[Rfam]
RNA sequence: GGGCAGGGUGCUUAGGGUUCCGUUCGCGCAAGCGAAGCCUGGUCCGAGAAGCGCCGCCUUUCCGGCAAAAUCCGGUCAGGUACACGGCGGGGCAAAAUCCCGGGAGGU
Numbered sequence: 001g002g003g004c005a006g007g008g009u010g011c012u013u014a015g016g017g018u019u020c021c022g023u024u025c026g027c028g029c030a031a032g033c034g035a036a037g038c039c040u041g042g043u044c045c046g047a048g049a050a051g052c053g054c055c056g057c058c059u060u061u062c063c064g065g066c067a068a069a070a071u072c073c074g075g076u077c078a079g080g081u082a083c084a085c086g087g088c089g090g091g092g093c094a095a096a097a098u099c100c101c102g103g104g105a106g107g108u
Stems, first nucleotide, its partner, number of pairs: 007055006015045002020042002022039001023036005056081004062075004083103001085106001089101003